[Rfam]
RNA: Eukaryotic large subunit ribosomal RNA, nucleotides 430 to 903
Organism: Chanos chanos
RNA sequence: CGGGUGGGGUCCGCGCAGUCCGCCCGGGGGACUCAACCCGGCGGGUGCGGUCGGCCCUCUCGGUGCGUCCGGAUCCCCCCUCGCGGGGGACCGGCGUCCGGGGGGAGCUCGGCCCCCGUCGGGCGCAUUUCCUCCGCGGUGGUGCGCCGCGACCGGCUCCGGUUUGGCUUGGAAGGGUCCGGGGACGAAGGUGGCUCGCGGCCUCGGCCGCGAGCUUUACAGCGUCCCCCCGCCCCCACUUCGCCACUUACCGCCGGGGCCGCGGACCAGUUGCCUCCGCGCCCUCUCCGGCCCCCUCUCGGGGGGGCCAGGGACGGGGCCCCUCCGCCUCCGACGCGGCUGUCAACUGGGCAGGACUGUCCUCAGUCCGUGCCCGACCGCGCCGCGCCGCCCGGGCGGGGACCGGCCCACGACCAAGGGCGCUCGGGGUCAGCGGCGAUGUCGGCUCCCCACCCGACCCGUCUUGAAACACGG
Numbered sequence: 001c002g003g004g005u006g007g008g009g010u011c012c013g014c015g016c017a018g019u020c021c022g023c024c025c026g027g028g029g030g031a032c033u034c035a036a037c038c039c040g041g042c043g044g045g046u047g048c049g050g051u052c053g054g055c056c057c058u059c060u061c062g063g064u065g066c067g068u069c070c071g072g073a074u075c076c077c078c079c080c081u082c083g084c085g086g087g088g089g090a091c092c093g094g095c096g097u098c099c100g101g102g103g104g105g106a107g108c109u110c111g112g113c114c115c116c117c118g119u120c121g122g123g124c125g126c127a128u129u130u131c132c133u134c135c136g137c138g139g140u141g142g143u144g145c146g147c148c149g150c151g152a153c154c155g156g157c158u159c160c161g162g163u164u165u166g167g168c169u170u171g172g173a174a175g176g177g178u179c180c181g182g183g184g185a186c187g188a189a190g191g192u193g194g195c196u197c198g199c200g201g202c203c204u205c206g207g208c209c210g211c212g213a214g215c216u217u218u219a220c221a222g223c224g225u226c227c228c229c230c231c232g233c234c235c236c237c238a239c240u241u242c243g244c245c246a247c248u249u250a251c252c253g254c255c256g257g258g259g260c261c262g263c264g265g266a267c268c269a270g271u272u273g274c275c276u277c278c279g280c281g282c283c284c285u286c287u288c289c290g291g292c293c294c295c296c297u298c299u300c301g302g303g304g305g306g307g308c309c310a311g312g313g314a315c316g317g318g319g320c321c322c323c324u325c326c327g328c329c330u331c332c333g334a335c336g337c338g339g340c341u342g343u344c345a346a347c348u349g350g351g352c353a354g355g356a357c358u359g360u361c362c363u364c365a366g367u368c369c370g371u372g373c374c375c376g377a378c379c380g381c382g383c384c385g386c387g388c389c390g391c392c393c394g395g396g397c398g399g400g401g402a403c404c405g406g407c408c409c410a411c412g413a414c415c416a417a418g419g420g421c422g423c424u425c426g427g428g429g430u431c432a433g434c435g436g437c438g439a440u441g442u443c444g445g446c447u448c449c450c451c452a453c454c455c456g457a458c459c460c461g462u463c464u465u466g467a468a469a470c471a472c473g474g
Base pairs, nucleotide, nucleotide: 001456002455003454004453005452006451007450008449009448012445459474460473461472462471